[Rfam]
RNA sequence: CCCCUAAUGGGAAGUGAAGACCCCGUGGAGCUUUACUGCAGCCUGCCGUUGGGCUGUGGUUCUGAUUGUAGAGCAUAGGUAGGAGACGUCGAAGCUCGGGCGCCAGUCCGAGUGGAGUCGCCCUUGGAAUACUACCCUUUCGGAGCCGCCGCCCUCACUCUGAGAAGAGGACCUCGGUAGGUGGGCAGUUUGGGUGGGGCGCCACGCCCUUGAAAAGAUAUCAAGGGCGCCCUAAGGUUGACUCAGUUGGGUCGGAAACCCAACAAAGAGUGUAAAGGCAUAAGUCAGCCUGAUGUUACCUCGCAUAGCAAGAGGUGAUAAGACGAAAGUCGGGCUUAGCGAACCUCUCAGCUCUCUUGGUGAGAGCGUUAGAUGACAGAAAAGCUACCCCGGGGAUAACAGAGUCGUCACCGGCAAGAGCACAUAUCGACCCGGUGGCUUGCUACCUCGAUGUCGGUUCUUUCCAUCCUGGCCGUGCAGCAGCGGCCAAGGGUGAGGUUGUUCGCCUAUUAAAGGAGAUCGUGAGCUGGGUUUAGACCGUCGUGAGACAGGUCGGUUACUAUCUGUUAGGGGUGUAUU
Numbered sequence: 001c002c003c004c005u006a007a008u009g010g011g012a013a014g015u016g017a018a019g020a021c022c023c024c025g026u027g028g029a030g031c032u033u034u035a036c037u038g039c040a041g042c043c044u045g046c047c048g049u050u051g052g053g054c055u056g057u058g059g060u061u062c063u064g065a066u067u068g069u070a071g072a073g074c075a076u077a078g079g080u081a082g083g084a085g086a087c088g089u090c091g092a093a094g095c096u097c098g099g100g101c102g103c104c105a106g107u108c109c110g111a112g113u114g115g116a117g118u119c120g121c122c123c124u125u126g127g128a129a130u131a132c133u134a135c136c137c138u139u140u141c142g143g144a145g146c147c148g149c150c151g152c153c154c155u156c157a158c159u160c161u162g163a164g165a166a167g168a169g170g171a172c173c174u175c176g177g178u179a180g181g182u183g184g185g186c187a188g189u190u191u192g193g194g195u196g197g198g199g200c201g202c203c204a205c206g207c208c209c210u211u212g213a214a215a216a217g218a219u220a221u222c223a224a225g226g227g228c229g230c231c232c233u234a235a236g237g238u239u240g241a242c243u244c245a246g247u248u249g250g251g252u253c254g255g256a257a258a259c260c261c262a263a264c265a266a267a268g269a270g271u272g273u274a275a276a277g278g279c280a281u282a283a284g285u286c287a288g289c290c291u292g293a294u295g296u297u298a299c300c301u302c303g304c305a306u307a308g309c310a311a312g313a314g315g316u317g318a319u320a321a322g323a324c325g326a327a328a329g330u331c332g333g334g335c336u337u338a339g340c341g342a343a344c345c346u347c348u349c350a351g352c353u354c355u356c357u358u359g360g361u362g363a364g365a366g367c368g369u370u371a372g373a374u375g376a377c378a379g380a381a382a383a384g385c386u387a388c389c390c391c392g393g394g395g396a397u398a399a400c401a402g403a404g405u406c407g408u409c410a411c412c413g414g415c416a417a418g419a420g421c422a423c424a425u426a427u428c429g430a431c432c433c434g435g436u437g438g439c440u441u442g443c444u445a446c447c448u449c450g451a452u453g454u455c456g457g458u459u460c461u462u463u464c465c466a467u468c469c470u471g472g473c474c475g476u477g478c479a480g481c482a483g484c485g486g487c488c489a490a491g492g493g494u495g496a497g498g499u500u501g502u503u504c505g506c507c508u509a510u511u512a513a514a515g516g517a518g519a520u521c522g523u524g525a526g527c528u529g530g531g532u533u534u535a536g537a538c539c540g541u542c543g544u545g546a547g548a549c550a551g552g553u554c555g556g557u558u559a560c561u562a563u564c565u566g567u568u569a570g571g572g573g574u575g576u577a578u579u
Stems, first nucleotide, its partner, number of pairs: 001573008010565003014560002022394004027390002029386005035189004042181007051154004056149010068137001078136005085119003097110005158169004192205001193203003206228006231334002237289006243269002246264006270279002294320009322331001324329001345372002349368001351367005403444003407441001408438007418428002455530001456528004460522001461519005468493002472487005496508004536554004540549003
Shown here is a 579-nucleotide part of an RNA from Methanothrix soehngenii, a member of the family "Archaeal large subunit ribosomal RNA". Pairs were carried over by alignment from the consensus structure, which is taken from published work. The literature on the family includes a 2001 paper in Science by Yusupov et al., "Crystal structure of the ribosome at 5.5 A resolution". It scores 2872 bits against the family's covariance model.